int-alpA RNA: a 66-nucleotide RNA sequence. It is annotated as a small RNA. Pairs were carried over by alignment from the consensus structure, which is taken from published work. From the family's description: Acidobacteria (1 example), Planctomycetes (1 example), Proteobacteria. The family has 167 seed sequences and 577 matches in Rfam 15.1.

[Rfam]
RNA sequence: GCCUCCAAUAGCCCGACGGGGCGAAAAGCGGAAGCCUUCAUCGCCUUUGGUCGCCUCUUUUGAAGG
Numbered sequence: 001g002c003c004u005c006c007a008a009u010a011g012c013c014c015g016a017c018g019g020g021g022c023g024a025a026a027a028g029c030g031g032a033a034g035c036c037u038u039c040a041u042c043g044c045c046u047u048u049g050g051u052c053g054c055c056u057c058u059u060u061u062g063a064a065g066g
Base pairs, nucleotide, nucleotide: 001054002053005050006049007048008047011022012021013020014019028044029043030042031041035066036065037064038063039062040061